The record is an 87-nucleotide RNA from Candidatus Enterococcus clewellii, which matches "Enterococcus sRNA 84" in Rfam. On this family, see Innocenti et al., RNA 2015: "Whole-genome mapping of 5' RNA ends in bacteria by tagged sequencing: a comprehensive view in Enterococcus faecalis".
RNA sequence: UACCAACAACAACCUUUUUAUUUUUCAUAUUACUCUUUAGAGUAAUACUCCUUUUUGGCUGUCUCAGUUUUGAGAGAGCCUUUUUCU
Numbered sequence: 001u002a003c004c005a006a007c008a009a010c011a012a013c014c015u016u017u018u019u020a021u022u023u024u025u026c027a028u029a030u031u032a033c034u035c036u037u038u039a040g041a042g043u044a045a046u047a048c049u050c051c052u053u054u055u056u057g058g059c060u061g062u063c064u065c066a067g068u069u070u071u072g073a074g075a076g077a078g079c080c081u082u083u084u085u086c087u
Stems, first nucleotide, its partner, number of pairs: 030045006058079003062075005
Taxonomically the source falls in Enterococcus (Bacteria, Bacilli, Lactobacillales, Enterococcaceae).